Small nucleolar RNA U83B: a 92-nucleotide RNA from Microtus ochrogaster. The literature on the family includes a 2000 paper in Nucleic Acids Res by Jady and Kiss, "Characterisation of the U83 and U84 small nucleolar RNAs: two novel 2'-O-ribose methylation guide RNAs that lack complementarities to ribosomal RNAs". Lineage of the source: Eukaryota > Metazoa > Boreoeutheria > Rodentia > Microtus. The pairing is the family consensus, mapped onto this sequence. Rfam classes the family as a C/D-box small nucleolar RNA.
[Rfam]
RNA sequence: GCUAUUCUAUGAUGAGACUCUGGAAUGUGCUGUAUACAGCACCCGAGUAACACUGUGGAAGCAUUCCCUGUUGCCUUCCUUCUGAGAAUAGC
Number, nucleotide and partner (000 for none) at each position: 001g092002c091003u090004a089005u088006u000007c000008u000009a000010u000011g000012a000013u000014g000015a000016g000017a000018c000019u000020c000021u000022g000023g000024a000025a000026u000027g000028u000029g000030c000031u000032g000033u000034a000035u000036a000037c000038a000039g000040c000041a000042c000043c000044c000045g000046a000047g000048u000049a000050a000051c000052a000053c000054u000055g000056u000057g000058g000059a000060a000061g000062c000063a000064u000065u000066c000067c000068c000069u000070g000071u000072u000073g000074c000075c000076u000077u000078c000079c000080u000081u000082c000083u000084g000085a000086g000087a000088a005089u004090a003091g002092c001